RNA sequence: GUAAUGCAUCAUGAGCCCGGAGCAAUCCGGCGCCAACCGAGCAAGAAAAGCCACGGUGGUUUAGUAUGCGGACAGUCUGUCAAAUAAAAUAACAAUU
Numbered sequence: 001g002u003a004a005u006g007c008a009u010c011a012u013g014a015g016c017c018c019g020g021a022g023c024a025a026u027c028c029g030g031c032g033c034c035a036a037c038c039g040a041g042c043a044a045g046a047a048a049a050g051c052c053a054c055g056g057u058g059g060u061u062u063a064g065u066a067u068g069c070g071g072a073c074a075g076u077c078u079g080u081c082a083a084a085u086a087a088a089a090u091a092a093c094a095a096u097u
Stems, first nucleotide, its partner, number of pairs: 006069004015031001017030005032060003037056003041051002047090001071081004

Source information: SAM-I/IV (S-adenosyl methionine) riboswitch aptamer: a 97-nucleotide RNA from Draconibacterium sediminis. Pairs were carried over by alignment from the consensus structure, which is taken from published work. Taxonomically the source falls in Draconibacterium (Bacteria, Pseudomonadati, Bacteroidia, Marinilabiliales). It scores 62 bits against the family's covariance model. For this family Rfam cites "The aptamer core of SAM-IV riboswitches mimics the ligand-binding site of SAM-I riboswitches" (Weinberg et al., RNA, 2008).